[Rfam]
RNA: Guanidine-II riboswitch aptamer (mini-ykkC)
RNA sequence: GUGAGGACGACCUCACCUCUCCCACUCAUCGGGGACGGCCCCA
Numbered sequence: 001g002u003g004a005g006g007a008c009g010a011c012c013u014c015a016c017c018u019c020u021c022c023c024a025c026u027c028a029u030c031g032g033g034g035a036c037g038g039c040c041c042c043a
Stems, first nucleotide, its partner, number of pairs: 001016006031042004